[Rfam]
RNA: U4atac minor spliceosomal RNA
Organism: Otolemur garnettii
RNA sequence: ACUUUCCUAUUCUUGGGGCUGUGCUACUAUCCAAUGAACACGUAGUAAGGGCAGUCUUGACAAUGCCCAUAUAACAUGCCCAUAUCAACUAAAGCUCUGCUUUGCCUUGCUACAAUUUUUGGAAAA
Dot-bracket structure: .....(((.......)))...((..(((.(((.....((.....))..))).)))..)).......................((.((..((((((...))))))...)).))..............